[Rfam]
RNA sequence: UGGAUAGUAUUCGAAUGAAACUGUACCACAAUUUUUUUAUUUUUAAGCAAAGGAUUGUAUCAAAAAAUUUUGAACAAGACCUUAAA
Numbered sequence: 001u002g003g004a005u006a007g008u009a010u011u012c013g014a015a016u017g018a019a020a021c022u023g024u025a026c027c028a029c030a031a032u033u034u035u036u037u038u039a040u041u042u043u044u045a046a047g048c049a050a051a052g053g054a055u056u057g058u059a060u061c062a063a064a065a066a067a068u069u070u071u072g073a074a075c076a077a078g079a080c081c082u083u084a085a086a
Base pairs, nucleotide, nucleotide: 001028002027003026004024005023006022007021008020010019011018051082052081053080055077056076057075058074060073061072062071063070064069
Dot-bracket structure: ((((((((.((......))))))).)))......................(((.((((.(((((....)))))))))..)))....
About this RNA: Shown here is an 86-nucleotide RNA from Megamonas hypermegale, a member of the family "pan motif". It scores 38 bits against the family's covariance model. The source organism's lineage runs through Bacteria, Bacillota, Negativicutes, Selenomonadales and Megamonas.